This 116-nucleotide RNA from Callorhinus ursinus belongs to the Rfam family "U4 spliceosomal RNA". For this family Rfam cites "The uRNA database" (Zwieb, Nucleic Acids Res, 1997). The family's consensus secondary structure is taken from published work. The match comes from Rfam's covariance-model search (68 bits). The family's RNA type in Rfam is spliceosomal small nuclear RNA.

[Rfam]
RNA sequence: AGCUUUGCGCAGUGGCAGUAUCGUAGCCAAUGAGGUUUAUCCGAGGUGCGAUUAUUGCUAAUUGUUUGUUCUAAUUCUGUGAAAAAUGCUUUUGAUUUUUUUUUUUCUCAAGGAGA
Number, nucleotide and partner (000 for none) at each position: 001a000002g000003c000004u000005u000006u000007g000008c000009g000010c000011a000012g000013u000014g000015g000016c000017a000018g000019u000020a052021u051022c050023g049024u048025a000026g047027c046028c045029a000030a000031u000032g000033a000034g042035g041036u000037u000038u000039a000040u000041c035042c034043g000044a000045g028046g027047u026048g024049c023050g022051a021052u020053u000054a000055u000056u000057g000058c000059u000060a000061a000062u000063u000064g000065u000066u000067u000068g000069u000070u000071c000072u000073a000074a000075u000076u113077c112078u110079g109080u000081g107082a106083a105084a104085a103086a102087u000088g000089c000090u000091u000092u000093u000094g000095a000096u000097u000098u000099u000100u000101u000102u086103u085104u084105u083106u082107c081108u000109c079110a078111a000112g077113g076114a000115g000116a000